[Rfam]
RNA: DUF3800-III RNA
RNA sequence: AAAGCGGUAUCGUAAGUCCUGGUGACCCUGGACCUUCGUAGAAGGUGCCUAGCUCCCGGUGAAACUCCGGGGGGACAGACUGAAAUCGGGGCCCAGGGGGAGCCGCUUU
Number, nucleotide and partner (000 for none) at each position: 001a109002a108003a107004g106005c105006g104007g103008u000009a000010u101011c100012g000013u000014a000015a000016g000017u000018c097019c096020u095021g094022g093023u000024g000025a000026c091027c090028c089029u000030g000031g000032a000033c045034c044035u043036u042037c041038g000039u000040a000041g037042a036043a035044g034045g033046u000047g000048c000049c000050u000051a000052g000053c073054u072055c071056c070057c069058g068059g067060u000061g000062a000063a000064a000065c000066u000067c059068c058069g057070g056071g055072g054073g053074g000075a000076c000077a000078g000079a000080c000081u000082g000083a000084a000085a000086u000087c000088g000089g028090g027091g026092c000093c022094c021095a020096g019097g018098g000099g000100g011101a010102g000103c007104c006105g005106c004107u003108u002109u001